This 69-nucleotide sequence from Amycolatopsis sp. SID8362 belongs to the Rfam family "ASpks TB sRNA".
RNA sequence: CUUGACCGAGCCGAGCCAGAGGGGCUCGUCGCGGUUCUGGCCGUAGGUGGCCAGCAACGCCUGGGCCUC
Numbered sequence: 001c002u003u004g005a006c007c008g009a010g011c012c013g014a015g016c017c018a019g020a021g022g023g024g025c026u027c028g029u030c031g032c033g034g035u036u037c038u039g040g041c042c043g044u045a046g047g048u049g050g051c052c053a054g055c056a057a058c059g060c061c062u063g064g065g066c067c068u069c
Base pairs, nucleotide, nucleotide: 014026015025016024017023029064030063032059033058037054038053039052041050042049043048

The family has 77 seed sequences and 9,052 matches in Rfam 15.1. The literature on the family includes a 2009 paper in Mol Microbiol by Arnvig and Young, "Identification of small RNAs in Mycobacterium tuberculosis". Pairs were carried over by alignment from the consensus structure, which is taken from published work.